[Rfam]
RNA sequence: ACUUUCCUUGUCAUGGGGUUGAGGACUGUUCAGUGAGCGUAUAGUGAGAGCAGGCCUGCUAACACCACAUCAACACAAAUGCAUCACCUGACUUCUUGAAGUCAGCUAACGGUGCAAUUUUUGGAAAU
Numbered sequence: 001a002c003u004u005u006c007c008u009u010g011u012c013a014u015g016g017g018g019u020u021g022a023g024g025a026c027u028g029u030u031c032a033g034u035g036a037g038c039g040u041a042u043a044g045u046g047a048g049a050g051c052a053g054g055c056c057u058g059c060u061a062a063c064a065c066c067a068c069a070u071c072a073a074c075a076c077a078a079a080u081g082c083a084u085c086a087c088c089u090g091a092c093u094u095c096u097u098g099a100a101g102u103c104a105g106c107u108a109a110c111g112g113u114g115c116a117a118u119u120u121u122u123g124g125a126a127a128u
Base pairs, nucleotide, nucleotide: 006018007017008016009015021059023057024056026053027052028051029050030049031048037045038044081115082114083113084112085111088105089104090103091102092101093100
U4atac minor spliceosomal RNA: a 128-nucleotide sequence from Onychostoma macrolepis. For this family Rfam cites "Evolution of spliceosomal snRNA genes in metazoan animals" (Marz et al., J Mol Evol, 2008). A search with the family's covariance model found it, with a score of 87 bits. Pairs were carried over by alignment from the consensus structure, which is taken from published work. By type it is a spliceosomal small nuclear RNA. Lineage of the source: Eukaryota > Deuterostomia > Teleostomi > Clupeocephala > Onychostoma. U4atac is an essential component of the minor U12-type spliceosome complex which is required for removal of the rarer class of eukaryotic introns (AT-AC, U12-type).